[Rfam]
RNA sequence: AUACUCCCGCCAAACACUCUGGCCUUUACCUUCAGCUGUUACAGGCUUAUUUAAACCAUGGUUCAGGCCUAUUUUUGGAGCGGGAAAAUUACUUGUCCGUUUACUCAUCUCGAUAUCUUAUUUUGAAAAUAGAUAUGGUGAUCCACUUCAUCAGGACAACAU
Numbered sequence: 001a002u003a004c005u006c007c008c009g010c011c012a013a014a015c016a017c018u019c020u021g022g023c024c025u026u027u028a029c030c031u032u033c034a035g036c037u038g039u040u041a042c043a044g045g046c047u048u049a050u051u052u053a054a055a056c057c058a059u060g061g062u063u064c065a066g067g068c069c070u071a072u073u074u075u076u077g078g079a080g081c082g083g084g085a086a087a088a089u090u091a092c093u094u095g096u097c098c099g100u101u102u103a104c105u106c107a108u109c110u111c112g113a114u115a116u117c118u119u120a121u122u123u124u125g126a127a128a129a130u131a132g133a134u135a136u137g138g139u140g141a142u143c144c145a146c147u148u149c150a151u152c153a154g155g156a157c158a159a160c161a162u
Base pairs, nucleotide, nucleotide: 007083008082009081021069022068023067024066025065028062029061030060095157096156097155098154108141109140111138113136114135115134116133117132118131

Small nucleolar RNA snR80: a 162-nucleotide RNA sequence from Erysiphe pulchra. Its Rfam clan is "SNORA28 clan". The source organism's lineage runs through Eukaryota, Opisthokonta, Fungi, Helotiales and Erysiphe. Pairs were carried over by alignment from the consensus structure, which was predicted with WAR. Rfam classes the family as an H/ACA-box small nucleolar RNA. The family has 6 seed sequences and 447 matches in Rfam 15.1.